RNA sequence: UCCCGAUGAGGAAGCAAACCCAAAAGAUAAGAAGUGCCAUAUGACACUCUCAAGCGCAGCAGUUCG
Numbered sequence: 001u002c003c004c005g006a007u008g009a010g011g012a013a014g015c016a017a018a019c020c021c022a023a024a025a026g027a028u029a030a031g032a033a034g035u036g037c038c039a040u041a042u043g044a045c046a047c048u049c050u051c052a053a054g055c056g057c058a059g060c061a062g063u064u065c066g
Base pairs, nucleotide, nucleotide: 014060015059031050033048034047035046036045
Dot-bracket structure: .............((...............(.((((........)))).)........))......